[Rfam]
RNA: MIR812 microRNA precursor family
RNA sequence: AAUGUAUGACGCCAUUGACUUUUUAAUCAACGUUUGACCAUUCGUCUUAUUCAAAAAAUUUAUGUAAUUAUCAUUUAUUUUAUUGUGGCUUGAUUUAUUAUCAAAUAUUCUUUAAGUAUAACAUAAAUAUUUUUAUAUUUGAACAAAAAAUUUGAAUAAGACGAAUGGUCAAACGUUGUUCGAAGAGUCAACGGUGUCAUAUAUU
Numbered sequence: 001a002a003u004g005u006a007u008g009a010c011g012c013c014a015u016u017g018a019c020u021u022u023u024u025a026a027u028c029a030a031c032g033u034u035u036g037a038c039c040a041u042u043c044g045u046c047u048u049a050u051u052c053a054a055a056a057a058a059u060u061u062a063u064g065u066a067a068u069u070a071u072c073a074u075u076u077a078u079u080u081u082a083u084u085g086u087g088g089c090u091u092g093a094u095u096u097a098u099u100a101u102c103a104a105a106u107a108u109u110c111u112u113u114a115a116g117u118a119u120a121a122c123a124u125a126a127a128u129a130u131u132u133u134u135a136u137a138u139u140u141g142a143a144c145a146a147a148a149a150a151u152u153u154g155a156a157u158a159a160g161a162c163g164a165a166u167g168g169u170c171a172a173a174c175g176u177u178g179u180u181c182g183a184a185g186a187g188u189c190a191a192c193g194g195u196g197u198c199a200u201a202u203a204u205u
Base pairs, nucleotide, nucleotide: 026180028178029177030176031175033173034172035171036170037169038168039167040166041165042164043163044162045161046160047159048158049157050156